RNA: Small nucleolar RNA SNORA72
Organism: Sciurus vulgaris
RNA sequence: UUGUAAAUGUUCUUGUUCUUCUGAUUUUGAAAUAAUCAGGACAUGUUAACCAAUCACUACAUUAGCACCAAGCAUGGGUUCCCUGACCUAGUUCUUUCCCUAGUCUAGUUUUAUAAAUGCUAGUAAUAAAC
Dot-bracket structure: ..((............(.((((((((.......)))))))).)............)).........((.(.((........(..((.((((........))))))..)..........))).)).......
Numbered sequence: 001u002u003g004u005a006a007a008u009g010u011u012c013u014u015g016u017u018c019u020u021c022u023g024a025u026u027u028u029g030a031a032a033u034a035a036u037c038a039g040g041a042c043a044u045g046u047u048a049a050c051c052a053a054u055c056a057c058u059a060c061a062u063u064a065g066c067a068c069c070a071a072g073c074a075u076g077g078g079u080u081c082c083c084u085g086a087c088c089u090a091g092u093u094c095u096u097u098c099c100c101u102a103g104u105c106u107a108g109u110u111u112u113a114u115a116a117a118u119g120c121u122a123g124u125a126a127u128a129a130a131c
Stems, first nucleotide, its partner, number of pairs: 003057002017043001019041008067124002070121001072120002082108001085105002088103004